[Rfam]
RNA sequence: GGGCAGGGCGCUUAGGGUUCCGUUGCCGACAUGGCAGGUCUGGUCCGAGAAGUGCCACCCUUGCGGCAAAUUCCGCACAGGGCACACGGCGGGCCAAAAUCCCGGGAGAU
Dot-bracket structure: ......((((((..((...(((((((((...))))))..).)).))....)))))).(((((((((......))))).))))..(.[...(((.......))).)..]..
The family of this 110-nucleotide RNA from Thioclava pacifica is "Guanidine-I riboswitch aptamer". NCBI's taxonomy places the organism under Bacteria, Pseudomonadota, Paracoccaceae, Thioclava, Thioclava pacifica. This family represents a conserved RNA structure found upstream of the ykkC and yxkD genes in Bacillus subtilis and related genes in other bacteria. The function of this family is unclear although it has been suggested that it may function to switch on efflux pumps and detoxification systems in response to harmful environmental molecules. The match comes from Rfam's covariance-model search (78 bits).